The family of this 84-nucleotide RNA sequence from Anaerotignum lactatifermentans is "ZMP/ZTP riboswitch aptamer (pfl RNA motif)".
RNA sequence: CGUGGAUUAUAUGACUGACGGAAUCGUGGAUCUAACCACAUGGAGUAUAAUCGUUACCACAAGCCGACCGUCUGGGCAGGAAAA
Numbered sequence: 001c002g003u004g005g006a007u008u009a010u011a012u013g014a015c016u017g018a019c020g021g022a023a024u025c026g027u028g029g030a031u032c033u034a035a036c037c038a039c040a041u042g043g044a045g046u047a048u049a050a051u052c053g054u055u056a057c058c059a060c061a062a063g064c065c066g067a068c069c070g071u072c073u074g075g076g077c078a079g080g081a082a083a084a
Stems, first nucleotide, its partner, number of pairs: 005052008015042001017072005026039004063077003
The source organism's lineage runs through Bacteria, Bacillota, Anaerotignaceae, Anaerotignum and Anaerotignum lactatifermentans.